[Rfam]
Shown here is a 507-nucleotide part of an RNA from Pythium oligandrum, a member of the family "Eukaryotic large subunit ribosomal RNA".
The source organism's lineage runs through Eukaryota, Stramenopiles, Peronosporomycetes, Pythiaceae and Pythium.
Gene Ontology terms of the family: structural constituent of ribosome and ribosome.
The match comes from Rfam's covariance-model search (3236 bits).

RNA sequence: CCCUCCGAAAUUUCCCUCAGGAUAGCAGCAACUUCUUUUCGAUAGUUUUAUGAGGUAAAGCGAAUGAUUAGAGGCCUCUGGGAAGAAACUUCCUGGACCUAUUCUCAAACUUUAAAUCUGUAAGACCUGCAGGUUUCUUAAUUGAACUUGUGGAUGUGAAUAUCAAGUUGCUAGUGGGCCAUACGGGGUAAGCUCGUCUGGCGAUGCGGGAUGAACCGAACGUGAUGUUAAAGUGCCAAAGUGCCCGCUCACCUAGAUACCAUAAAAGGUGUUGGUUCAUUUAGACAGCAGGACGGUGGCCAUGGAAGUCGGAAUCCGCUAAGGAGUGUGUAACAACUCACCUGCCGAAUGAACUAGCCCUGAAAAUGGAUGGCGCUGAAGCGAGCCACUUAUACAUCGCCGUUAACGCGAUUGCAUGAAUAAUGUAUGCGUUAAUGAGUAGGAGGGCGUGAAGGUUGUGAAGAAGCUCUUGACGUGAGUCUGAGUGAAACAGCCUUUAGUGCAGAU
Numbered sequence: 001c002c003c004u005c006c007g008a009a010a011u012u013u014c015c016c017u018c019a020g021g022a023u024a025g026c027a028g029c030a031a032c033u034u035c036u037u038u039u040c041g042a043u044a045g046u047u048u049u050a051u052g053a054g055g056u057a058a059a060g061c062g063a064a065u066g067a068u069u070a071g072a073g074g075c076c077u078c079u080g081g082g083a084a085g086a087a088a089c090u091u092c093c094u095g096g097a098c099c100u101a102u103u104c105u106c107a108a109a110c111u112u113u114a115a116a117u118c119u120g121u122a123a124g125a126c127c128u129g130c131a132g133g134u135u136u137c138u139u140a141a142u143u144g145a146a147c148u149u150g151u152g153g154a155u156g157u158g159a160a161u162a163u164c165a166a167g168u169u170g171c172u173a174g175u176g177g178g179c180c181a182u183a184c185g186g187g188g189u190a191a192g193c194u195c196g197u198c199u200g201g202c203g204a205u206g207c208g209g210g211a212u213g214a215a216c217c218g219a220a221c222g223u224g225a226u227g228u229u230a231a232a233g234u235g236c237c238a239a240a241g242u243g244c245c246c247g248c249u250c251a252c253c254u255a256g257a258u259a260c261c262a263u264a265a266a267a268g269g270u271g272u273u274g275g276u277u278c279a280u281u282u283a284g285a286c287a288g289c290a291g292g293a294c295g296g297u298g299g300c301c302a303u304g305g306a307a308g309u310c311g312g313a314a315u316c317c318g319c320u321a322a323g324g325a326g327u328g329u330g331u332a333a334c335a336a337c338u339c340a341c342c343u344g345c346c347g348a349a350u351g352a353a354c355u356a357g358c359c360c361u362g363a364a365a366a367u368g369g370a371u372g373g374c375g376c377u378g379a380a381g382c383g384a385g386c387c388a389c390u391u392a393u394a395c396a397u398c399g400c401c402g403u404u405a406a407c408g409c410g411a412u413u414g415c416a417u418g419a420a421u422a423a424u425g426u427a428u429g430c431g432u433u434a435a436u437g438a439g440u441a442g443g444a445g446g447g448c449g450u451g452a453a454g455g456u457u458g459u460g461a462a463g464a465a466g467c468u469c470u471u472g473a474c475g476u477g478a479g480u481c482u483g484a485g486u487g488a489a490a491c492a493g494c495c496u497u498u499a500g501u502g503c504a505g506a507u
Stems, first nucleotide, its partner, number of pairs: 001447006011024001013022003027172007046125007058113001059111002065107003070102001072100003077097006084090001127153009178202004183197005207218003222400005228394001232390003241387001243386001246383003267361003271358010288345005294318003300312002319323001324339001328337002401437009448502001450499010466486002472481003